Record summary:
A member of the RNA family "Small nucleolar RNA SNORA11" from Enhydra lutris, 130 nucleotides long. The match comes from Rfam's covariance-model search (134 bits).
RNA sequence: AGGGUGUGCUUAGAGCAGGGGGCCUAAACAAAUGGCUCUUCUGUUUAUAACACACCCAACAAGAAUCUGGGUCCAUUGUGACAAGGGACACAAAACUUGUAGCCUUCUUAUGAACAUAUAGCCUACACAU
Numbered sequence: 001a002g003g004g005u006g007u008g009c010u011u012a013g014a015g016c017a018g019g020g021g022g023c024c025u026a027a028a029c030a031a032a033u034g035g036c037u038c039u040u041c042u043g044u045u046u047a048u049a050a051c052a053c054a055c056c057c058a059a060c061a062a063g064a065a066u067c068u069g070g071g072u073c074c075a076u077u078g079u080g081a082c083a084a085g086g087g088a089c090a091c092a093a094a095a096c097u098u099g100u101a102g103c104c105u106u107c108u109u110a111u112g113a114a115c116a117u118a119u120a121g122c123c124u125a126c127a128c129a130u
Stems, first nucleotide, its partner, number of pairs: 002057007013046009022036003070123003077116003082112002085105003090100004
Annotation: On this family, see Gu et al., Nucleic Acids Res 2005: "A novel experimental approach for systematic identification of box H/ACA snoRNAs from eukaryotes". The family's consensus secondary structure was predicted with RNAalifold.